A member of the RNA family "Bacterial small signal recognition particle RNA" from Rickettsia prowazekii, 94 nucleotides long. The match comes from Rfam's covariance-model search (51 bits). NCBI's taxonomy places the organism under Bacteria, Pseudomonadati, Rickettsiaceae, Rickettsieae, Rickettsia prowazekii. About the family: The signal recognition particle (SRP) is a universally conserved ribonucleoprotein involved in the co-translational targeting of proteins to membranes.
RNA sequence: UUAUGCUAGUAGUGGGCAUUGCUCUUGCUUAGUUGGUCAGGUCUGAAAAGAAGCAGCCAGGGUAAGAUUCUGUGGGUCAUUACUAGUAUCAUUG
Numbered sequence: 001u002u003a004u005g006c007u008a009g010u011a012g013u014g015g016g017c018a019u020u021g022c023u024c025u026u027g028c029u030u031a032g033u034u035g036g037u038c039a040g041g042u043c044u045g046a047a048a049a050g051a052a053g054c055a056g057c058c059a060g061g062g063u064a065a066g067a068u069u070c071u072g073u074g075g076g077u078c079a080u081u082a083c084u085a086g087u088a089u090c091a092u093u094g
Base pairs, nucleotide, nucleotide: 003089004088005087006086007085008084009083010082011081012080013079017074018073019072021070023067024066025065026064027063028062029061033060034059035058036057037056042051043050044049